[Rfam]
RNA sequence: AAAUCAAAUGAUGAAUCUGGAUUAUAAUUUUUUCACGACGGUCGACUGAGACACUAAUCAUGGUGUCCAUGCUGAUUCAAUACUCCAGUUAUUCUGAUGGUA
Numbered sequence: 001a002a003a004u005c006a007a008a009u010g011a012u013g014a015a016u017c018u019g020g021a022u023u024a025u026a027a028u029u030u031u032u033u034c035a036c037g038a039c040g041g042u043c044g045a046c047u048g049a050g051a052c053a054c055u056a057a058u059c060a061u062g063g064u065g066u067c068c069a070u071g072c073u074g075a076u077u078c079a080a081u082a083c084u085c086c087a088g089u090u091a092u093u094c095u096g097a098u099g100g101u102a
Stems, first nucleotide, its partner, number of pairs: 002101001004099001052065005